[Rfam]
RNA sequence: AACAUCAUAUCGCCUGUCCGUCCUCCGUAAAAGGUCGAAGUGAUAUAUAACCACUUCGAUUGGAGCUUGUAGACGGCAUAAGCGUAGAGAGAUAAGCACGUUGCUGGGCGCCUGACGCUGACUACUAAAUGGAGCGUUGGGAAUCAGUUGUGGCUACAGUC
Dot-bracket structure: ..........(((....(((((..(.......(((((.(((...........))).))))).......)..))))).....)))...........(((((..........((..(((((..(((.....))))))))..)).......))).)).......
Rfam assigns this 161-nucleotide RNA from Candidozyma haemuli to the family "Small nucleolar RNA snR32". Rfam links the family to the GO terms RNA processing and nucleolus. A search with the family's covariance model found it, with a score of 87 bits. It is annotated as an H/ACA-box small nucleolar RNA. On this family, see Balakin et al., Nucleic Acids Res 1993: "SnR31, snR32, and snR33: three novel, non-essential snRNAs from Saccharomyces cerevisiae". The organism belongs to Candidozyma, within Eukaryota.